[Rfam]
RNA sequence: GUACUAUGAUGGUUGCAUAGUUUGGUAGAUUGAAUAUAAAAGAGGUAACGUGUCUGAUGUACCU
Numbered sequence: 001g002u003a004c005u006a007u008g009a010u011g012g013u014u015g016c017a018u019a020g021u022u023u024g025g026u027a028g029a030u031u032g033a034a035u036a037u038a039a040a041a042g043a044g045g046u047a048a049c050g051u052g053u054c055u056g057a058u059g060u061a062c063c064u
Stems, first nucleotide, its partner, number of pairs: 001062004006037002009035002013028004042051001044049001